[Rfam]
RNA: MIR480 microRNA precursor family
RNA sequence: AAAUCGGCUCUGAGCAGCUCUGAUCUAUUCAUGAAAAUUUCACACCUGAAUUUUCACAUUUUUUGCAUAAUUACUAUAUUAUGGAAAUAGUAAAAAACAUGAGGAAAUCUCCUUAUACUCACAGGCAGAAG
Numbered sequence: 001a002a003a004u005c006g007g008c009u010c011u012g013a014g015c016a017g018c019u020c021u022g023a024u025c026u027a028u029u030c031a032u033g034a035a036a037a038u039u040u041c042a043c044a045c046c047u048g049a050a051u052u053u054u055c056a057c058a059u060u061u062u063u064u065g066c067a068u069a070a071u072u073a074c075u076a077u078a079u080u081a082u083g084g085a086a087a088u089a090g091u092a093a094a095a096a097a098c099a100u101g102a103g104g105a106a107a108u109c110u111c112c113u114u115a116u117a118c119u120c121a122c123a124g125g126c127a128g129a130a131g
Base pairs, nucleotide, nucleotide: 004129005128007126008124009123012120014118017114022109023108024107026105028103029102030101